RNA sequence: GGCCAUCAUCCAUUCACUACGGAUCGUCCGGCACGUACCUGCCGGUGAAGGAGAAAUAC
Numbered sequence: 001g002g003c004c005a006u007c008a009u010c011c012a013u014u015c016a017c018u019a020c021g022g023a024u025c026g027u028c029c030g031g032c033a034c035g036u037a038c039c040u041g042c043c044g045g046u047g048a049a050g051g052a053g054a055a056a057u058a059c
Stems, first nucleotide, its partner, number of pairs: 010051002013049004028045006

Rfam assigns this 59-nucleotide sequence from Homoserinimonas aerilata to the family "msiK RNA". The match comes from Rfam's covariance-model search (68 bits). NCBI's taxonomy places the organism under Bacteria, Actinomycetota, Actinomycetes, Microbacteriaceae, Homoserinimonas. By type it is a cis-regulatory element. Rfam 15.1 lists 1,374 matches to the family in 1,364 species.